Rfam assigns this 121-nucleotide RNA from Novilysobacter arseniciresistens to the family "SAM riboswitch aptamer (S box leader)".
Lineage of the source: Bacteria > Pseudomonadota > Lysobacterales > Lysobacteraceae > Novilysobacter arseniciresistens.
A search with the family's covariance model found it, with a score of 77 bits.
Nucleotides: 121
Base pairs, nucleotide, nucleotide: 001121002120004118005117006116007115008114013042014041015040016039017038021031022030023029025086026085027084028083043078044077045076046075048074049073052069053068054067055066056065082113087110088109089108090107
Number, partner (000 for none) and nucleotide at each position: 001121c002120a003000u004118c005117c006116a007115u008114c009000g010000a011000g012000a013042c014041c015040g016039g017038c018000u019000g020000a021031g022030g023029g024000a025086c026085a027084g028083g029023c030022c031021c032000u033000u034000u035000g036000a037000a038017g039016c040015c041014g042013g043078g044077g045076c046075a047000a048074c049073c050000c051000a052069g053068c054067g055066g056065c057000g058000u059000g060000c061000a062000a063000g064000c065056g066055u067054c068053g069052c070000g071000a072000a073049g074048g075046u076045g077044c078043c079000a080000a081000u082113u083028c084027c085026u086025g087110c088109g089108g090107a091000c092000g093000c094000c095000g096000g097000c098000g099000u100000g101000c102000c103000g104000g105000u106000c107090u108089c109088c110087g111000g112000a113082a114008g115007a116006u117005g118004g119000u120002u121001g